The record is a 74-nucleotide RNA sequence from Clostridium sp. SM-530-WT-3G, which matches "RAGATH-18 RNA" in Rfam. A search with the family's covariance model found it, with a score of 70 bits. Pairs were carried over by alignment from the consensus structure, which is taken from published work. From the family's description: Actinobacteria, Firmicutes, Fusobacteria, Thermotogae (1 example). Taxonomically the source falls in Clostridium (Bacteria, Bacillati, Bacillota, Eubacteriales).
[Rfam]
RNA sequence: CCUUUGGAGUAUUAUACCAAAUGUGAGUAGUAAUAGAAUUUUCUAUUAUCAAAGCAGAUACAUUGAAAAAGGAA
Numbered sequence: 001c002c003u004u005u006g007g008a009g010u011a012u013u014a015u016a017c018c019a020a021a022u023g024u025g026a027g028u029a030g031u032a033a034u035a036g037a038a039u040u041u042u043c044u045a046u047u048a049u050c051a052a053a054g055c056a057g058a059u060a061c062a063u064u065g066a067a068a069a070a071g072g073a074a
Stems, first nucleotide, its partner, number of pairs: 001072005009061005022056003030049003034045002